[Rfam]
RNA: Small nucleolar RNA SNORA47
RNA sequence: UGGAGGACUGAGAAGGUUGAACAGCUUGCUCAGUGCUGUUAUAACUGGUUAUAACCUCCGAGAGAAUAACCAACAAACGGCACAGUUUAGUCCCUGUGUCAGAAGGGACCAUGUGUGCUUUUGUGGAACAUUUG
Number, nucleotide and partner (000 for none) at each position: 001u000002g059003g058004a057005g056006g055007a000008c000009u000010g000011a000012g000013a000014a000015g046016g045017u044018u043019g000020a040021a039022c038023a037024g036025c035026u000027u000028g000029c000030u000031c000032a000033g000034u000035g025036c024037u023038g022039u021040u020041a000042u000043a018044a017045c016046u015047g000048g000049u000050u000051a000052u000053a000054a000055c006056c005057u004058c003059c002060g000061a000062g000063a000064g000065a000066a000067u000068a000069a000070c000071c000072a000073a000074c123075a122076a121077a000078c000079g119080g118081c000082a116083c115084a114085g000086u000087u000088u000089a000090g109091u108092c107093c106094c105095u000096g000097u104098g000099u000100c000101a000102g000103a000104a097105g094106g093107g092108a091109c090110c000111a000112u000113g000114u084115g083116u082117g000118c080119u079120u000121u076122u075123g074124u000125g000126g000127a000128a000129c000130a000131u000132u000133u000134g000